[Rfam]
RNA sequence: CACGUGCUCCGGGGUCGGUGAGAGUCCGAACCGGCGGUGACAGUCCGCGACCCGCCUGACAGGCGGUUGAACCGGUGGGAUUCCGGUACCGACGGUGAAAGUCCGGAUGGGAGGAGUACGCG
Dot-bracket structure: ..((((((((.....(((.......))).[[((((((.....[[))))...((...........))....(((((.......)))))]])).(((.....]]))).......))))))))..
A member of the RNA family "FMN riboswitch aptamer (RFN element)" from Schaalia sp. 19OD2882, 122 nucleotides long. It scores 97 bits against the family's covariance model. Pairs were carried over by alignment from the consensus structure, which is taken from published work. Its family is annotated with FMN binding in the Gene Ontology.